[Rfam]
Nucleotides: 379
Base pairs, nucleotide, nucleotide: 004379005378006377007375008327009326010325011324012323013322014321016035017034018033019032020031021030040373041372042371044370045369046368047367048366049241050240051239052238053237054071055070056069057068058067059066077236078235079234081232082103083102084101085100086099087098104126105124106123107122108121109120110119127231128230130170131169132168133167138161139160141159142158146155147154148153177229178228179225180224181223194213195212196211197210198209199208200207201206245261246260247259265295266294267293268292269291270290271289297311298310299309300308301307329358333354334353335352336351337350338349339348
Number, partner (000 for none) and nucleotide at each position: 001000a002000a003000u004379u005378u006377c007375g008327g009326g010325u011324a012323a013322u014321u015000g016035g017034g018033c019032a020031u021030a022000a023000c024000u025000u026000a027000u028000g029000u030021u031020g032019u033018g034017u035016c036000a037000g038000g039000a040373a041372a042371g043000u044370c045369c046368a047367u048366g049241c050240u051239c052238g053237c054071a055070c056069a057068g058067g059066c060000u061000g062000u063000g064000a065000u066059g067058c068057c069056u070055g071054u072000a073000g074000u075000g076000u077236u078235c079234g080000u081232g082103c083102u084101c085100a086099g087098u088000g089000a090000a091000a092000a093000a094000a095000u096000a097000a098087g099086c100085u101084g102083g103082g104126g105124u106123g107122c108121c109120u110119u111000c112000u113000c114000u115000u116000u117000u118000g119110a120109a121108g122107g123106u124105a125000a126104c127231g128230g129000c130170g131169g132168g133167a134000a135000a136000a137000c138161g139160u140000u141159g142158c143000u144000a145000a146155g147154g148153c149000u150000u151000c152000g153148g154147c155146u156000a157000u158142g159141c160139g161138c162000u163000a164000g165000u166000a167133u168132c169131c170130c171000u172000g173000a174000a175000a176000a177229g178228u179225g180224c181223c182000a183000c184000a185000g186000u187000g188000a189000c190000g191000a192000a193000a194213c195212c196211a197210g198209u199208a200207u201206g202000g203000a204000a205000a206201c207200a208199u209198g210197c211196u212195g213194g214000g215000u216000g217000g218000a219000a220000c221000g222000c223181g224180g225179u226000a227000a228178a229177c230128c231127c232081c233000u234079c235078g236077a237053g238052c239051g240050g241049g242000a243000a244000a245261c246260c247259c248000a249000a250000a251000c252000u253000a254000c255000g256000g257000u258000a259247g260246g261245g262000g263000a264000g265295c266294u267293u268292c269291a270290c271289a272000u273000a274000g275000g276000u277000a278000a279000c280000u281000g282000a283000a284000c285000u286000g287000a288000u289271u290270g291269u292268g293267g294266g295265g296000g297311a298310a299309g300308g301307u302000c303000u304000u305000u306000g307301a308300c309299c310298u311297u312000g313000a314000g315000a316000u317000a318000g319000a320000u321014g322013a323012u324011u325010a326009c327008c328000a329358c330000g331000g332000a333354g334353u335352a336351g337350a338349u339348u340000g341000c342000g343000c344000c345000u346000g347000a348339g349338a350337u351336c352335u353334a354333c355000a356000a357000a358329g359000u360000a361000c362000a363000a364000a365000a366048c367047a368046u369045g370044g371042c372041u373040u374000a375007c376000a377006g378005a379004a